[Rfam]
Small nucleolar RNA SNORA8: a 139-nucleotide RNA from Machaerirhynchus nigripectus.
RNA sequence: UGCAGUGUUACAGUACCUGUGCCCAGCAGCCUUCUCCUGGUGGGAUGUUCAAAAGCAGUGCUACAGCAGUGCAGUGUUUGGCAUCCUUGGUUUUCCUUCUGCUGUGUCUGUUGAACCUGGUAUUUUUGCUGAAAGUGUU
Numbered sequence: 001u002g003c004a005g006u007g008u009u010a011c012a013g014u015a016c017c018u019g020u021g022c023c024c025a026g027c028a029g030c031c032u033u034c035u036c037c038u039g040g041u042g043g044g045a046u047g048u049u050c051a052a053a054a055g056c057a058g059u060g061c062u063a064c065a066g067c068a069g070u071g072c073a074g075u076g077u078u079u080g081g082c083a084u085c086c087u088u089g090g091u092u093u094u095c096c097u098u099c100u101g102c103u104g105u106g107u108c109u110g111u112u113g114a115a116c117c118u119g120g121u122a123u124u125u126u127u128g129c130u131g132a133a134a135g136u137g138u139u
Stems, first nucleotide, its partner, number of pairs: 002061003006057002016055001018053001019048003023044002025041001027039003064128003068124003072119003080108005
The family is grouped with related families in Rfam's "SNORA8 clan".